[Rfam]
A member of the RNA family "GP20-b RNA", 54 nucleotides long.

RNA sequence: UGCCGCCGGGCGUAAAAACGGAAACACAAGGGACGCAACCCCGUACAAAGCAUA
Numbered sequence: 001u002g003c004c005g006c007c008g009g010g011c012g013u014a015a016a017a018a019c020g021g022a023a024a025c026a027c028a029a030g031g032g033a034c035g036c037a038a039c040c041c042c043g044u045a046c047a048a049a050g051c052a053u054a
Stems, first nucleotide, its partner, number of pairs: 001012004006021003030042003